The record is an 81-nucleotide RNA from Echeneis naucrates, which matches "mir-459 microRNA precursor family" in Rfam.
[Rfam]
RNA sequence: AUUGUCGUCAUCAGUAACAAGGAUUCAUCCUGUUGUGUUUCUGCAGACUGACAGGAAAUCACUGUUACUGUCGUCGGCUGU
Numbered sequence: 001a002u003u004g005u006c007g008u009c010a011u012c013a014g015u016a017a018c019a020a021g022g023a024u025u026c027a028u029c030c031u032g033u034u035g036u037g038u039u040u041c042u043g044c045a046g047a048c049u050g051a052c053a054g055g056a057a058a059u060c061a062c063u064g065u066u067a068c069u070g071u072c073g074u075c076g077g078c079u080g081u
Stems, first nucleotide, its partner, number of pairs: 012070008022060004029055007037048003